[Rfam]
RNA: 5' ureB small RNA
RNA sequence: CUUCUUCCAUCUGCUGCGGGCAGAUGAAAUGGAUGUGGCAAUCGAUGCCGCCGGCGGUGACGAUUUUGCCUUCGCCGGCGAUGAUCUCGGUGGCGCCGCCGAUCACCAUGGUCACGUCCGGCUGGAUAUCCGGGUUGCCGGCCUUGCCGAUGGCGGCGAUCUUGCCGCCCUUGAUGCCGAUGUCGGCCUUGACGAUGCCCCAGUGGUCGAUGAUCACGGCGUUGGUGAUCACGGUGUCCAUCACGUCCCUAUGCAUGCGUUGCGACUGGCCCAUGCCGUCGCGGAU
Numbered sequence: 001c002u003u004c005u006u007c008c009a010u011c012u013g014c015u016g017c018g019g020g021c022a023g024a025u026g027a028a029a030u031g032g033a034u035g036u037g038g039c040a041a042u043c044g045a046u047g048c049c050g051c052c053g054g055c056g057g058u059g060a061c062g063a064u065u066u067u068g069c070c071u072u073c074g075c076c077g078g079c080g081a082u083g084a085u086c087u088c089g090g091u092g093g094c095g096c097c098g099c100c101g102a103u104c105a106c107c108a109u110g111g112u113c114a115c116g117u118c119c120g121g122c123u124g125g126a127u128a129u130c131c132g133g134g135u136u137g138c139c140g141g142c143c144u145u146g147c148c149g150a151u152g153g154c155g156g157c158g159a160u161c162u163u164g165c166c167g168c169c170c171u172u173g174a175u176g177c178c179g180a181u182g183u184c185g186g187c188c189u190u191g192a193c194g195a196u197g198c199c200c201c202a203g204u205g206g207u208c209g210a211u212g213a214u215c216a217c218g219g220c221g222u223u224g225g226u227g228a229u230c231a232c233g234g235u236g237u238c239c240a241u242c243a244c245g246u247c248c249c250u251a252u253g254c255a256u257g258c259g260u261u262g263c264g265a266c267u268g269g270c271c272c273a274u275g276c277c278g279u280c281g282c283g284g285a286u
Base pairs, nucleotide, nucleotide: 002285003284005283007281009279012158013157014156015155016154017153018076019075022072023071030053031052032051034050035049037048057069058068059067077148078147081144083142085140090138091137092136093135094134095130099125100124102123104121108117109116164270165269166268167267170264172262173261174260175259176258178257186220187219188218190216191215200209223255224254228250231246234244235243236242